[Rfam]
RNA: CyVA-1 RNA
Organism: Petrachloros mirabilis
RNA sequence: ACCCUGAAUGAGAGUUCUGUCGCUGUGACUCAGCACCUGCUGCCGAAGGAGAGCGAUGGUCAGGCAAAAGGUCAGGAG
Numbered sequence: 001a002c003c004c005u006g007a008a009u010g011a012g013a014g015u016u017c018u019g020u021c022g023c024u025g026u027g028a029c030u031c032a033g034c035a036c037c038u039g040c041u042g043c044c045g046a047a048g049g050a051g052a053g054c055g056a057u058g059g060u061c062a063g064g065c066a067a068a069a070g071g072u073c074a075g076g077a078g
Stems, first nucleotide, its partner, number of pairs: 003076004009032004037070002041066004